[Rfam]
RNA sequence: CCGUCCCUGUAUCGAUGAAGAUGAGGGAACUUUAUAUUCGUACACCUCGUUGUGUACGAGAGUGCUCUCCGCAACAGGACCAGGAUCGUCCUGUUUCUUGUCGCACCAAUGUGCGACGAUGUGAUUCCGCGUUGAAUGGCGUAUGUCCCUGACAGGACAACGCCCGAAAGG
Dot-bracket structure: ....((((.((((......))))))))..........((((((((......)))))))).............((((((((.......))))))))..((((((((......))))))))..................(((((.(((((......)))))))))).......
RNA: Chloroflexus-1 RNA